[Rfam]
Overview: This 142-nucleotide sequence from Hibiscus syriacus belongs to the Rfam family "MIR396 microRNA precursor family". Gene Ontology terms of the family: miRNA-mediated post-transcriptional gene silencing and RISC complex. A reference for the family is Jones-Rhoades and Bartel (2004), "Computational identification of plant microRNAs and their targets, including a stress-induced miRNA", Mol Cell.

RNA sequence: CUUUGUAUUCUUCCACAGCUUUCUUGAACUGCAACUUCGCCUUAGAUCGUUGGUUUCUUUUGUUCUUGGUUUAGGUGCAUCCAUGGAAGCAGCCGCGGCCUAUUUUGUUGCGGUUCAACAAAGCUGUGGGAAGAUACAGACA
Numbered sequence: 001c002u003u004u005g006u007a008u009u010c011u012u013c014c015a016c017a018g019c020u021u022u023c024u025u026g027a028a029c030u031g032c033a034a035c036u037u038c039g040c041c042u043u044a045g046a047u048c049g050u051u052g053g054u055u056u057c058u059u060u061u062g063u064u065c066u067u068g069g070u071u072u073a074g075g076u077g078c079a080u081c082c083a084u085g086g087a088a089g090c091a092g093c094c095g096c097g098g099c100c101u102a103u104u105u106u107g108u109u110g111c112g113g114u115u116c117a118a119c120a121a122a123g124c125u126g127u128g129g130g131a132a133g134a135u136a137c138a139g140a141c142a
Stems, first nucleotide, its partner, number of pairs: 003139005013129003017125006024118004029113007